[Rfam]
RNA sequence: AUACUUACCUGGCAGGGCAGACACCACGAUCAGGCAGGUGCUUUUCCCAGGGCUAGGCUCUUCCAUUGCACUGCGGGAGUGCUGACCCCUGCGAUUUCCCCACAUGUGGGAAACUCGACUGCAUAAUUUGUGGUAGUGGGGGACUGCAUGCACGCUCUUCCCUG
Numbered sequence: 001a002u003a004c005u006u007a008c009c010u011g012g013c014a015g016g017g018c019a020g021a022c023a024c025c026a027c028g029a030u031c032a033g034g035c036a037g038g039u040g041c042u043u044u045u046c047c048c049a050g051g052g053c054u055a056g057g058c059u060c061u062u063c064c065a066u067u068g069c070a071c072u073g074c075g076g077g078a079g080u081g082c083u084g085a086c087c088c089c090u091g092c093g094a095u096u097u098c099c100c101c102a103c104a105u106g107u108g109g110g111a112a113a114c115u116c117g118a119c120u121g122c123a124u125a126a127u128u129u130g131u132g133g134u135a136g137u138g139g140g141g142g143a144c145u146g147c148a149u150g151c152a153c154g155c156u157c158u159u160c161c162c163u164g
Stems, first nucleotide, its partner, number of pairs: 012122004016048002019045003023042001025040003049090004056083003060079005092117003095113003099109002138163006146155002
This 164-nucleotide RNA from Oryctolagus cuniculus belongs to the Rfam family "U1 spliceosomal RNA". The match comes from Rfam's covariance-model search (137 bits). NCBI's taxonomy places the organism under Eukaryota, Opisthokonta, Amniota, Lagomorpha, Oryctolagus. About the family: U1 is a small nuclear RNA (snRNA) component of the spliceosome (involved in pre-mRNA splicing). Its 5' end forms complementary base pairs with the 5' splice junction, thus defining the 5' donor site of an intron. There are significant differences in sequence and secondary structure between metazoan and yeast U1 snRNAs, the latter being much longer (568 nucleotides as compared to 164 nucleotides in human). Nevertheless, secondary structure predictions suggest that all U1 snRNAs share a 'common core' consisting of helices I, II, the proximal region of III, and IV. This family does not contain the larger yeast sequences. Rfam classes the family as a spliceosomal small nuclear RNA.